[Rfam]
Nucleotides: 081
Stems, first nucleotide, its partner, number of pairs: 001081001003079003008075014023060005031045004047052001
Number, partner (000 for none) and nucleotide at each position: 001081u002000g003079a004078g005077g006000c007000u008075g009074a010073g011072g012071u013070a014069g015068u016067a017066g018065a019064u020063u021062g022000a023060a024059u025058a026057g027056u028000u029000g030000u031045g032044g033043a034042g035000u036000c037000c038000u039000a040000u041000c042034c043033u044032c045031c046000c047052u048000u049000u050000g051000a052047a053000c054000u055000a056027a057026c058025u059024a060023u061000a062021c063020a064019a065018u066017c067016u068015a069014c070013u071012g072011u073010c074009u075008u076000u077005c078004c079003u080000a081001a
This 81-nucleotide sequence from Nothoprocta perdicaria belongs to the Rfam family "let-7 microRNA precursor family".
Gene Ontology terms of the family: RISC complex and miRNA-mediated post-transcriptional gene silencing.
The family has 64 seed sequences and 8,694 matches in Rfam 15.1.
This family represents the microRNAs (miRNA) let-7 and mir-98. let-7 was identified from a study of developmental timing in C. elegans, and was later shown to be part of a much larger class of non-coding RNAs termed miRNAs.
The base pairs follow the family's consensus structure, which was predicted with RNAalifold.
Taxonomically the source falls in Nothoprocta (Eukaryota, Deuterostomia, Vertebrata, Sauropsida).
It scores 64 bits against the family's covariance model.
Its Rfam clan is "let-7 microRNA precursor clan".